[Rfam]
RNA sequence: GGGUCAGCCAUAGCUCAGCGGUUACUUCCAUCGAAACCUUGCACGUCCUUACCUAGGAUCGAUUCCCGCGGGCGCUAUCUGACUCUUUA
Numbered sequence: 001g002g003g004u005c006a007g008c009c010a011u012a013g014c015u016c017a018g019c020g021g022u023u024a025c026u027u028c029c030a031u032c033g034a035a036a037c038c039u040u041g042c043a044c045g046u047c048c049u050u051a052c053c054u055a056g057g058a059u060c061g062a063u064u065c066c067c068g069c070g071g072g073c074g075c076u077a078u079c080u081g082a083c084u085c086u087u088u089a
Stems, first nucleotide, its partner, number of pairs: 002084006013073004018069004027062002030059001
The family of this 89-nucleotide RNA from Leptobrachium leishanense is "Vault RNA". The base pairs follow the family's consensus structure, which is taken from published work. The match comes from Rfam's covariance-model search (65 bits). For this family Rfam cites "Evolution of Vault RNAs" (Stadler et al., Mol Biol Evol, 2009).